[Rfam]
Nucleotides: 155
Base pairs, nucleotide, nucleotide: 003069004068005067006066007065010063011062017057018056019055020054021053022051024048025047026046081148082147083146084145085144086143090138091137093135094134095133096132097131098130101120102119103118
Number, partner (000 for none) and nucleotide at each position: 001000u002000a003069g004068c005067a006066u007065g008000u009000a010063g011062c012000a013000c014000c015000c016000c017057g018056g019055g020054c021053u022051u023000c024048u025047c026046c027000g028000a029000u030000g031000u032000u033000u034000c035000u036000u037000u038000u039000g040000c041000a042000a043000u044000g045000a046026g047025g048024a049000a050000a051022g052000a053021a054020g055019c056018c057017c058000c059000a060000a061000u062011g063010c064000u065007c066006g067005u068004g069003c070000a071000a072000u073000a074000c075000c076000a077000a078000a079000u080000c081148g082147c083146c084145a085144u086143c087000c088000u089000g090138u091137g092000u093135u094134g095133c096132a097131g098130a099000u100000c101120u102119g103118g104000u105000u106000g107000u108000a109000a110000a111000a112000c113000u114000c115000a116000u117000u118103u119102c120101a121000u122000u123000g124000g125000a126000c127000c128000g129000a130098u131097c132096u133095g134094u135093g136000u137091c138090a139000a140000a141000g142000u143086g144085a145084u146083g147082g148081c149000a150000a151000u152000a153000a154000u155000a

This 155-nucleotide RNA sequence from Zostera marina belongs to the Rfam family "small nucleolar RNA snoR134". Lineage of the source: Eukaryota > Magnoliopsida > Liliopsida > Alismatales > Zostera. The match comes from Rfam's covariance-model search (86 bits). By type it is an H/ACA-box small nucleolar RNA. On this family, see Chen and Wu, Nucleic Acids Res 2009: "Mining small RNA sequencing data: a new approach to identify small nucleolar RNAs in Arabidopsis".